[Rfam]
RNA sequence: AUUUUUUAUUCACUAAAUCACACACAUAUCACAAACUAAACAUCGGGGUGCUGUUUUUCUAUUAAGAGAAACGGUCGAUGACUUAGGAUAUGUGGAGGCAAAAC
Numbered sequence: 001a002u003u004u005u006u007u008a009u010u011c012a013c014u015a016a017a018u019c020a021c022a023c024a025c026a027u028a029u030c031a032c033a034a035a036c037u038a039a040a041c042a043u044c045g046g047g048g049u050g051c052u053g054u055u056u057u058u059c060u061a062u063u064a065a066g067a068g069a070a071a072c073g074g075u076c077g078a079u080g081a082c083u084u085a086g087g088a089u090a091u092g093u094g095g096a097g098g099c100a101a102a103a104c
Base pairs, nucleotide, nucleotide: 023094024093025092026091027090028089029088030087037085038084039083042079043078044077045076050075051074052073053072054071055070056069057068
RNA: t44 RNA